[Rfam]
RNA sequence: CCCAUUGCAAACGCCGCUCAUCCGCUUAUAUUGGCAGUGUUCCUUCGGGAACUAUGGGCAUAAACGCGCAUGUAAUAAGCGGAUCGGACCCGGGGGCGGUACCCGGCGGCUCCACCAAACACCCGGUCGUUGGCGGGUCAUGGGGCCGAAACAGGAUCGACGAACGUGUAAAGAUGUUGCUUUGUCCCGGUGAGAUACCACCGUUAUCGGUUCACAUUGCAUAAUUGCCAACGACAAUCAUGCUCCGGUUGCAGUUGCUGCGUAAGCAGUGACAAGACCGAAAUCUAAGCCCUUGCGCCUAGCCGCGUAAGGCGGGGUUCGCAGGCACCUGGCAACAGAAGCCUGCACU
Numbered sequence: 001c002c003c004a005u006u007g008c009a010a011a012c013g014c015c016g017c018u019c020a021u022c023c024g025c026u027u028a029u030a031u032u033g034g035c036a037g038u039g040u041u042c043c044u045u046c047g048g049g050a051a052c053u054a055u056g057g058g059c060a061u062a063a064a065c066g067c068g069c070a071u072g073u074a075a076u077a078a079g080c081g082g083a084u085c086g087g088a089c090c091c092g093g094g095g096g097c098g099g100u101a102c103c104c105g106g107c108g109g110c111u112c113c114a115c116c117a118a119a120c121a122c123c124c125g126g127u128c129g130u131u132g133g134c135g136g137g138u139c140a141u142g143g144g145g146c147c148g149a150a151a152c153a154g155g156a157u158c159g160a161c162g163a164a165c166g167u168g169u170a171a172a173g174a175u176g177u178u179g180c181u182u183u184g185u186c187c188c189g190g191u192g193a194g195a196u197a198c199c200a201c202c203g204u205u206a207u208c209g210g211u212u213c214a215c216a217u218u219g220c221a222u223a224a225u226u227g228c229c230a231a232c233g234a235c236a237a238u239c240a241u242g243c244u245c246c247g248g249u250u251g252c253a254g255u256u257g258c259u260g261c262g263u264a265a266g267c268a269g270u271g272a273c274a275a276g277a278c279c280g281a282a283a284u285c286u287a288a289g290c291c292c293u294u295g296c297g298c299c300u301a302g303c304c305g306c307g308u309a310a311g312g313c314g315g316g317g318u319u320c321g322c323a324g325g326c327a328c329c330u331g332g333c334a335a336c337a338g339a340a341g342c343c344u345g346c347a348c349u
Stems, first nucleotide, its partner, number of pairs: 039052005056187005066180002068177004080166002084163003090106005107148007188203004194213002197211003315330004321346006
The family of this 349-nucleotide sequence from Pseudoponticoccus marisrubri is "Alphaproteobacteria transfer-messenger RNA". Pairs were carried over by alignment from the consensus structure, which is taken from published work. NCBI's taxonomy places the organism under Bacteria, Pseudomonadati, Pseudomonadota, Roseobacteraceae, Pseudoponticoccus. The family is grouped with related families in Rfam's "tRNA clan". About the family: Bacterial tmRNA, also known as 10Sa RNA or SsrA, is named for its dual tRNA and mRNA-like properties. Its role is to liberate the mRNA from a stalled ribosome.